[Rfam]
RNA sequence: ACACCAUCCAGAGUGGCCGAGAGACCUGGCUCGACGACGCCACAGCAACCACCGCGCAGCGGCAGGUGCUCCCGCCAGGGGCGAUGGAGG
Dot-bracket structure: .(.(((((....(((((...(((..[[[[)))......)))))((((.((.(((.....)))..))))))...(]]]]...)))))).).
This 90-nucleotide sequence from Kineococcus radiotolerans belongs to the Rfam family "SAM riboswitch aptamer (S box leader)". Taxonomically the source falls in Kineococcus radiotolerans (Bacteria, Bacillati, Kineosporiales, Kineosporiaceae). Pairs were carried over by alignment from the consensus structure, which is taken from published work. Clan: SAM clan.